[Rfam]
RNA sequence: GCCUCUGUUUGAUAUGUUUGAUAUUGGGUUGUUUUUUUGAAAAAGCAACUAUAUAUUAGACAUAUUCCUCCAGCGCC
Numbered sequence: 001g002c003c004u005c006u007g008u009u010u011g012a013u014a015u016g017u018u019u020g021a022u023a024u025u026g027g028g029u030u031g032u033u034u035u036u037u038u039g040a041a042a043a044a045g046c047a048a049c050u051a052u053a054u055a056u057u058a059g060a061c062a063u064a065u066u067c068c069u070c071c072a073g074c075g076c077c
Stems, first nucleotide, its partner, number of pairs: 005073003011066014027050005
Background:
Rfam assigns this 77-nucleotide sequence from Scyliorhinus torazame to the family "mir-190 microRNA precursor family". The match comes from Rfam's covariance-model search (64 bits). Rfam links the family to the GO terms RISC complex and miRNA-mediated post-transcriptional gene silencing. The family is grouped with related families in Rfam's "mir-50 clan". Rfam 15.1 lists 1,667 matches to the family in 854 species. The family's consensus secondary structure was predicted with RNAalifold. NCBI's taxonomy places the organism under Eukaryota, Opisthokonta, Elasmobranchii, Galeoidea, Scyliorhinus.